[Rfam]
RNA: Purine riboswitch aptamer
Organism: Bacillus sp. THAF10
RNA sequence: AAUAAACGUUCAAGUUUCAUUCGUAUAUUCUUAGAGAUAUGGUCUAAGAGUUUCUACUAGGAGCCGUAAAAUCCUAACUACGAAUGGGUGGAUUCCUCUA
Numbered sequence: 001a002a003u004a005a006a007c008g009u010u011c012a013a014g015u016u017u018c019a020u021u022c023g024u025a026u027a028u029u030c031u032u033a034g035a036g037a038u039a040u041g042g043u044c045u046a047a048g049a050g051u052u053u054c055u056a057c058u059a060g061g062a063g064c065c066g067u068a069a070a071a072u073c074c075u076a077a078c079u080a081c082g083a084a085u086g087g088g089u090g091g092a093u094u095c096c097u098c099u100a
Stems, first nucleotide, its partner, number of pairs: 018086008029049007058076005